[Rfam]
RNA sequence: GAAAAUUUUUUAGGGAUAGAACAGUCAUGUCGAUAAAAUGAUUUGAACCAUUU
Numbered sequence: 001g002a003a004a005a006u007u008u009u010u011u012a013g014g015g016a017u018a019g020a021a022c023a024g025u026c027a028u029g030u031c032g033a034u035a036a037a038a039u040g041a042u043u044u045g046a047a048c049c050a051u052u053u
Stems, first nucleotide, its partner, number of pairs: 011033001013031002016028002